This 109-nucleotide RNA sequence from Raphanus sativus belongs to the Rfam family "Small nucleolar RNA Z107/R87".
The match comes from Rfam's covariance-model search (88 bits).
Gene Ontology terms of the family: RNA processing and nucleolus.

RNA sequence: GAAGGCGGUGACGACUCGGAAUAUAUCAAGCUCAACAGACCGGAAUGAGCCGUUUCCUUUUUACUAGGGAUUCGUUUCUGUGUCGAUAAUCCCGCUGAACUGAGCCUUC
Numbered sequence: 001g002a003a004g005g006c007g008g009u010g011a012c013g014a015c016u017c018g019g020a021a022u023a024u025a026u027c028a029a030g031c032u033c034a035a036c037a038g039a040c041c042g043g044a045a046u047g048a049g050c051c052g053u054u055u056c057c058u059u060u061u062u063a064c065u066a067g068g069g070a071u072u073c074g075u076u077u078c079u080g081u082g083u084c085g086a087u088a089a090u091c092c093c094g095c096u097g098a099a100c101u102g103a104g105c106c107u108u109c
Stems, first nucleotide, its partner, number of pairs: 001109006